Shown here is a 119-nucleotide RNA from Medicago truncatula, a member of the family "MIR2679 microRNA precursor family". It scores 98 bits against the family's covariance model. The family's consensus secondary structure was predicted with RNAalifold.
RNA sequence: AUGGCGAUCCGAGACACAUACUUUUCAUUUUCGAACAGGUGAAUGUACAAUCACGCUGGAAGAUGUAUAUAUGUUACUUGGCAUACCUUUUGGAGGACAAAUUGUUACGGGUCCUCCAC
Numbered sequence: 001a002u003g004g005c006g007a008u009c010c011g012a013g014a015c016a017c018a019u020a021c022u023u024u025u026c027a028u029u030u031u032c033g034a035a036c037a038g039g040u041g042a043a044u045g046u047a048c049a050a051u052c053a054c055g056c057u058g059g060a061a062g063a064u065g066u067a068u069a070u071a072u073g074u075u076a077c078u079u080g081g082c083a084u085a086c087c088u089u090u091u092g093g094a095g096g097a098c099a100a101a102u103u104g105u106u107a108c109g110g111g112u113c114c115u116c117c118a119c
Stems, first nucleotide, its partner, number of pairs: 002118003006114001009110003013106003028096008037088005044081001052073002057069002060066001